The family of this 131-nucleotide sequence from Kroppenstedtia eburnea is "c-di-AMP riboswitch aptamer (ydaO/yuaA leader)". Its family is annotated with regulation of gene expression and cyclic-di-AMP binding in the Gene Ontology. Lineage of the source: Bacteria > Bacillati > Bacillota > Caryophanales > Kroppenstedtia. The literature on the family includes a 2004 paper in Proc Natl Acad Sci U S A by Barrick et al., "New RNA motifs suggest an expanded scope for riboswitches in bacterial genetic control". Rfam 15.1 lists 7,607 matches to the family in 2,262 species.
[Rfam]
RNA sequence: AUGUAAAUCAAGCCGAAUCCUGACUUCAGGUACGGGGGACUAUAUUUGUUUUGGGGUGAAGCCGCUGUGCGGCCGGGAACUCCUUAUCCUGAACCCGUCAACUAACCUCGGAGGCUAUAAGGAGGAAUAUU
Numbered sequence: 001a002u003g004u005a006a007a008u009c010a011a012g013c014c015g016a017a018u019c020c021u022g023a024c025u026u027c028a029g030g031u032a033c034g035g036g037g038g039a040c041u042a043u044a045u046u047u048g049u050u051u052u053g054g055g056g057u058g059a060a061g062c063c064g065c066u067g068u069g070c071g072g073c074c075g076g077g078a079a080c081u082c083c084u085u086a087u088c089c090u091g092a093a094c095c096c097g098u099c100a101a102c103u104a105a106c107c108u109c110g111g112a113g114g115c116u117a118u119a120a121g122g123a124g125g126a127a128u129a130u131u
Stems, first nucleotide, its partner, number of pairs: 011116004019030002033110005041053002054096003062072004075090004